[Rfam]
RNA sequence: GGAGUUCUGGACCUGGCAUACAGUGUAGUAUUCUGUGUGCGUCCGUCUACAGCUACAUUGUCUGCUGGGUUUCAGGCCUCCACU
Dot-bracket structure: ............((((((.(((((((((....((((............))))))))))))).))))))................
Rfam assigns this 84-nucleotide sequence from Oryzias latipes to the family "mir-221 microRNA precursor family". The source organism's lineage runs through Eukaryota, Metazoa, Craniata, Percomorphaceae and Oryzias. A reference for the family is Yao et al. (2008), "MicroRNA profile of Marek's disease virus-transformed T-cell line MSB-1: predominance of virus-encoded microRNAs", J Virol. Gene Ontology terms of the family: miRNA-mediated post-transcriptional gene silencing and RISC complex. Pairs were carried over by alignment from the consensus structure, which was predicted with RNAalifold.